[Rfam]
RNA: mir-8799 microRNA precursor family
RNA sequence: AGGGGGAGCACCGCAUCUUGGGCUGUGUCCCCCGGCGCCCUGGGCUCUGGGGUCUGCGCAACUGGAAUAGCGCUCCCGGGCCCCGCAGCCACCU
Numbered sequence: 001a002g003g004g005g006g007a008g009c010a011c012c013g014c015a016u017c018u019u020g021g022g023c024u025g026u027g028u029c030c031c032c033c034g035g036c037g038c039c040c041u042g043g044g045c046u047c048u049g050g051g052g053u054c055u056g057c058g059c060a061a062c063u064g065g066a067a068u069a070g071c072g073c074u075c076c077c078g079g080g081c082c083c084c085g086c087a088g089c090c091a092c093c094u
Stems, first nucleotide, its partner, number of pairs: 001094003005090002011085001013081002017079002020076003024072003028066002032064001035059004042054001044053003